The family of this 83-nucleotide RNA from Culex quinquefasciatus is "mir-184 microRNA precursor family".
For this family Rfam cites "The developmental miRNA profiles of zebrafish as determined by small RNA cloning" (Chen et al., Genes Dev, 2005).
NCBI's taxonomy places the organism under Eukaryota, Arthropoda, Neoptera, Culicomorpha, Culex pipiens complex.

[Rfam]
RNA sequence: GUGUAUUCGCACCCUUAUCAUUCUUUCGCCCCGUGUACUGUUGUUUGCGACUGGACGGAGAACUGAUAAGGGCCCGGGUCACC
Number, nucleotide and partner (000 for none) at each position: 001g000002u000003g000004u000005a000006u000007u000008c000009g000010c000011a000012c072013c071014c070015u069016u068017a067018u066019c065020a064021u062022u061023c060024u000025u059026u058027c057028g000029c000030c054031c053032c000033g000034u000035g000036u000037a000038c000039u000040g000041u000042u000043g000044u000045u000046u000047g000048c000049g000050a000051c000052u000053g031054g030055a000056c000057g027058g026059a025060g023061a022062a021063c000064u020065g019066a018067u017068a016069a015070g014071g013072g012073c000074c000075c000076g000077g000078g000079u000080c000081a000082c000083c000

The sequence is in the family's curated seed alignment.